[Rfam]
RNA sequence: ACGCUUCCCGCAUGUUCGCUGGCGUUGCCGGCAGCAUGCCCAGGCAGUCGAGACCUUCAAGACUGCGGCGCGGUUCGCCGUGCUGGUUGCUUCGUUCUCCGGGCGCACCCGCGUCCAUCCACCUCACCCUCA
Number, nucleotide and partner (000 for none) at each position: 001a000002c000003g000004c000005u000006u000007c000008c000009c000010g000011c038012a037013u036014g035015u033016u000017c000018g032019c031020u030021g029022g028023c027024g000025u000026u000027g023028c022029c021030g020031g019032c018033a015034g000035c014036a013037u012038g011039c000040c000041c000042a000043g000044g066045c065046a064047g063048u062049c061050g000051a000052g088053a087054c086055c085056u000057u000058c000059a000060a000061g049062a048063c047064u046065g045066c044067g084068g083069c082070g081071c080072g079073g078074u000075u000076c000077g000078c073079c072080g071081u070082g069083c068084u067085g055086g054087u053088u052089g000090c000091u000092u000093c000094g000095u000096u000097c000098u000099c000100c000101g000102g000103g000104c000105g000106c000107a000108c000109c000110c000111g000112c000113g000114u000115c000116c000117a000118u000119c000120c000121a000122c000123c000124u000125c000126a000127c000128c000129c000130u000131c000132a000